[Rfam]
RNA sequence: GGUCGGGAGUACGGAGGCGAUACAAUACCCGCAAGGGGAAAACCUUCUGCCGUUCUGAGUACGGUUGUGAGCUCCCGACCUUUUUAUU
Numbered sequence: 001g002g003u004c005g006g007g008a009g010u011a012c013g014g015a016g017g018c019g020a021u022a023c024a025a026u027a028c029c030c031g032c033a034a035g036g037g038g039a040a041a042a043c044c045u046u047c048u049g050c051c052g053u054u055c056u057g058a059g060u061a062c063g064g065u066u067g068u069g070a071g072c073u074c075c076c077g078a079c080c081u082u083u084u085u086a087u088u
Base pairs, nucleotide, nucleotide: 001080002079003078004077005076006075007074008073009072013047014046015045016044028037029036030035049065050064051063052062053061
sRNA-Xcc1: an 88-nucleotide RNA from Halodesulfovibrio spirochaetisodalis. A search with the family's covariance model found it, with a score of 67 bits. For this family Rfam cites "sRNA-Xcc1, an integron-encoded transposon- and plasmid-transferred trans-acting sRNA, is under the positive control of the key virulence regulators HrpG and HrpX of Xanthomonas campestris pathovar campestris" (Chen et al., RNA Biol, 2011). NCBI's taxonomy places the organism under Bacteria, Thermodesulfobacteriota, Desulfovibrionia, Desulfovibrionaceae, Halodesulfovibrio. The base pairs follow the family's consensus structure, which was predicted with RNAalifold. The family has 74 seed sequences and 421 matches in Rfam 15.1.